ArsR-gov region gene B: an 87-nucleotide RNA sequence from Serratia fonticola. The sequence is in the family's curated seed alignment. Rfam describes the family as follows. arsR-gov region gene B is transcribed opposite of dinQ (translates into a toxic single transmembrane peptide) with 30 complimentary nucleotides. AgrB appears to repress accumulation of dinQ by RNA interference and counteracts its toxicity. The family has 4 seed sequences and 51 matches in Rfam 15.1.

[Rfam]
Nucleotides: 087
Stems, first nucleotide, its partner, number of pairs: 021050006029041003055084006063077005
Number, partner (000 for none) and nucleotide at each position: 001000u002000u003000a004000g005000a006000u007000a008000u009000u010000g011000g012000c013000u014000g015000u016000u017000u018000c019000a020000c021050u022049c023048u024047g025046g026045u027000u028000a029041g030040a031039g032000c033000c034000a035000c036000c037000a038000a039031c040030u041029c042000a043000g044000c045026g046025c047024c048023a049022g050021a051000a052000u053000g054000u055084a056083a057082a058081a059080a060079a061000a062000c063077c064076c065075g066074a067073u068000u069000c070000a071000c072000c073067a074066u075065c076064g077063g078000g079060u080059u081058u082057u083056u084055u085000u086000a087000c
For this family Rfam cites "Single transmembrane peptide DinQ modulates membrane-dependent activities" (Weel-Sneve et al., PLoS Genet, 2013).